Source information:
c-di-GMP-I riboswitch aptamer: an 81-nucleotide RNA sequence from Candidatus Sulfobium mesophilum. A search with the family's covariance model found it, with a score of 52 bits. NCBI's taxonomy places the organism under Bacteria, Nitrospiria, Nitrospirales, Nitrospiraceae, Candidatus Sulfobium.
RNA sequence: CCCGAAAAAGGCCGAACUCUCCGGAAGGGGAGGGCGGAAAGCGGCGGAUCUACUUAAUGAGAAGAUGGCUGAGCUGCCGAA
Numbered sequence: 001c002c003c004g005a006a007a008a009a010g011g012c013c014g015a016a017c018u019c020u021c022c023g024g025a026a027g028g029g030g031a032g033g034g035c036g037g038a039a040a041g042c043g044g045c046g047g048a049u050c051u052a053c054u055u056a057a058u059g060a061g062a063a064g065a066u067g068g069c070u071g072a073g074c075u076g077c078c079g080a081a
Stems, first nucleotide, its partner, number of pairs: 012037002017032006040075003045071003048066003055060001